[Rfam]
RNA sequence: UGCCACUCGGCAAAAAUACGCCACUCAGGUGGGAGUUAGUAGGCCCAGAUACGGGCUCGAAAGCCCUCAAGGCUUAAAGAAAG
Numbered sequence: 001u002g003c004c005a006c007u008c009g010g011c012a013a014a015a016a017u018a019c020g021c022c023a024c025u026c027a028g029g030u031g032g033g034a035g036u037u038a039g040u041a042g043g044c045c046c047a048g049a050u051a052c053g054g055g056c057u058c059g060a061a062a063g064c065c066c067u068c069a070a071g072g073c074u075u076a077a078a079g080a081a082a083g
Stems, first nucleotide, its partner, number of pairs: 001012004020073003030069004035064002042058002044055003